Background:
This 73-nucleotide sequence from Corynebacterium imitans belongs to the Rfam family "tRNA". It is annotated as a transfer RNA.
RNA sequence: GCCCCAGUAGCUCAGUGGAUAGAGCACUUCUCUCCUAAAGAAGGUGUCGGAGGUUCGAUUCCUCUCUGGGGCG
Numbered sequence: 001g002c003c004c005c006a007g008u009a010g011c012u013c014a015g016u017g018g019a020u021a022g023a024g025c026a027c028u029u030c031u032c033u034c035c036u037a038a039a040g041a042a043g044g045u046g047u048c049g050g051a052g053g054u055u056c057g058a059u060u061c062c063u064c065u066c067u068g069g070g071g072c073g
Base pairs, nucleotide, nucleotide: 001072002071003070004069005068006067007066010025011024012023013022027043028042029041030040031039049065050064051063052062053061